Annotation: c-di-GMP-II-GAG riboswitch aptamer: an 84-nucleotide sequence from Deinococcus peraridilitoris. The base pairs follow the family's consensus structure, which is taken from published work. The sequence is in the family's curated seed alignment. The literature on the family includes a 2017 paper in Proc Natl Acad Sci U S A by Weinberg et al., "Bioinformatic analysis of riboswitch structures uncovers variant classes with altered ligand specificity".
RNA sequence: CGCCCUCCUGAACGCAACGACCUGUCUUCCUUACCCGGUCACCCGGAAGACGGCGAGCGAAUGGUGAGACCGACCAGGAGAAUC
Numbered sequence: 001c002g003c004c005c006u007c008c009u010g011a012a013c014g015c016a017a018c019g020a021c022c023u024g025u026c027u028u029c030c031u032u033a034c035c036c037g038g039u040c041a042c043c044c045g046g047a048a049g050a051c052g053g054c055g056a057g058c059g060a061a062u063g064g065u066g067a068g069a070c071c072g073a074c075c076a077g078g079a080g081a082a083u084c
Stems, first nucleotide, its partner, number of pairs: 002083001005080006013059003022053008037071002039067005